[Rfam]
RNA: Plastid-psbA-4 3UTR RNA
Organism: Triticum aestivum
RNA sequence: AAAUAAAGACAGAAAUACCUAAUAUCUUGUUCUAGCAAGAUAUUGGGUAUUUCUGUCUUCA
Numbered sequence: 001a002a003a004u005a006a007a008g009a010c011a012g013a014a015a016u017a018c019c020u021a022a023u024a025u026c027u028u029g030u031u032c033u034a035g036c037a038a039g040a041u042a043u044u045g046g047g048u049a050u051u052u053c054u055g056u057c058u059u060c061a
Base pairs, nucleotide, nucleotide: 006059007058008057009056010055011054012053013052014051015050016049017048021044022043024041025040026039027038028037029036